The family of this 138-nucleotide sequence is "TPP riboswitch aptamer (THI element)". Vitamin B(1) in its active form thiamin pyrophosphate (TPP) is an essential coenzyme that is synthesised by coupling of pyrimidine and thiazole moieties in bacteria.

Nucleotides: 138
Stems, first nucleotide, its partner, number of pairs: 006126005011087004016081001017073002021069007093118003099112004
Number, partner (000 for none) and nucleotide at each position: 001000u002000g003000a004000a005000c006126c007125a008124g009123c010122g011087a012086g013085g014084g015000g016081u017073g018072c019000c020000u021069c022068c023067a024066g025065c026064g027063u028000a029000u030000g031000a032000g033000c034000c035000c036000a037000u038000g039000g040000u041000u042000u043000c044000g045000a046000c047000c048000a049000u050000g051000a052000a053000u054000a055000u056000g057000c058000c059000c060000a061000u062000c063027a064026u065025g066024c067023u068022g069021g070000u071000c072018g073017c074000u075000g076000a077000g078000a079000u080000u081016a082000u083000a084014c085013c086012c087011u088000u089000u090000u091000u092000a093118c094117c095116u096000g097000a098000u099112c100111c101110g102109g103000g104000u105000c106000a107000u108000a109102c110101c111100g112099g113000c114000g115000g116095a117094g118093g119000g120000a121000c122010u123009g124008c125007u126006g127000a128000a129000c130000g131000a132000a133000u134000c135000u136000u137000g138000g

A search with the family's covariance model found it, with a score of 58 bits.